A member of the RNA family "Streptomyces-metH RNA", 131 nucleotides long. By type it is a small RNA.

[Rfam]
RNA sequence: CCCGUCCGCCCCGUGGACGCCCUGAACAUCCUUCCCCGGUCCCGGCUACCCUGGCGGCGUGCGCCCACCGCGGAACGGACCGCAAGGGCGCAAAGCCGACAGCCGUCGCACCUUGAGGGAGCCCUUUCAUG
Numbered sequence: 001c002c003c004g005u006c007c008g009c010c011c012c013g014u015g016g017a018c019g020c021c022c023u024g025a026a027c028a029u030c031c032u033u034c035c036c037c038g039g040u041c042c043c044g045g046c047u048a049c050c051c052u053g054g055c056g057g058c059g060u061g062c063g064c065c066c067a068c069c070g071c072g073g074a075a076c077g078g079a080c081c082g083c084a085a086g087g088g089c090g091c092a093a094a095g096c097c098g099a100c101a102g103c104c105g106u107c108g109c110a111c112c113u114u115g116a117g118g119g120a121g122c123c124c125u126u127u128c129a130u131g
Stems, first nucleotide, its partner, number of pairs: 060092004065087002095109002098107003